[Rfam]
RNA sequence: AACGGGGACGCCGAAAACCGGAAACAGAGUAGGCG
Numbered sequence: 001a002a003c004g005g006g007g008a009c010g011c012c013g014a015a016a017a018c019c020g021g022a023a024a025c026a027g028a029g030u031a032g033g034c035g
Stems, first nucleotide, its partner, number of pairs: 003020003010034003
The family of this 35-nucleotide sequence is "DUF805b RNA". The family's RNA type in Rfam is cis-regulatory element.